Selenocysteine transfer RNA: a 93-nucleotide RNA sequence from Romboutsia ilealis. NCBI's taxonomy places the organism under Bacteria, Bacillota, Clostridia, Peptostreptococcales, Romboutsia. A search with the family's covariance model found it, with a score of 69 bits. The base pairs follow the family's consensus structure, which is taken from published work.
RNA sequence: GGGAGUGGAUGGGUGCUGGUGUGUCCUCUAGUCUUCAAAACUAGUAUGAGGAGUUAAUAGCUUCUUAGGUGGGUUCGAUUCCCACGCAUUCCC
Number, nucleotide and partner (000 for none) at each position: 001g093002g092003g091004a090005g089006u088007g087008g085009a000010u000011g026012g025013g024014u023015g022016c021017u000018g000019g000020u000021g016022u015023g014024u013025c012026c011027u000028c044029u043030a042031g041032u040033c000034u000035u000036c000037a000038a000039a000040a032041c031042u030043a029044g028045u000046a000047u067048g066049a065050g064051g063052a000053g000054u000055u000056a000057a000058u000059a000060g000061c000062u000063u051064c050065u049066u048067a047068g000069g000070u084071g083072g082073g081074u000075u000076c000077g000078a000079u000080u000081c073082c072083c071084a070085c008086g000087c007088a006089u005090u004091c003092c002093c001